The record is a 68-nucleotide sequence from Ornithorhynchus anatinus, which matches "mir-1421 microRNA precursor family" in Rfam. The sequence is in the family's curated seed alignment. The family's consensus secondary structure was predicted with RNAalifold. Gene Ontology terms of the family: miRNA-mediated post-transcriptional gene silencing and RISC complex.
[Rfam]
RNA sequence: GUGUGAGGGGGUCGUACGUCAUGCAGAGUGAUGGCGGGAUAUGCUGCACCGUGUGCGACCUCCUUACA
Numbered sequence: 001g002u003g004u005g006a007g008g009g010g011g012u013c014g015u016a017c018g019u020c021a022u023g024c025a026g027a028g029u030g031a032u033g034g035c036g037g038g039a040u041a042u043g044c045u046g047c048a049c050c051g052u053g054u055g056c057g058a059c060c061u062c063c064u065u066a067c068a
Base pairs, nucleotide, nucleotide: 002068003067004066005065007063008062009061010060011059012058013057014056015055016054017053018052019051022048023047024046025045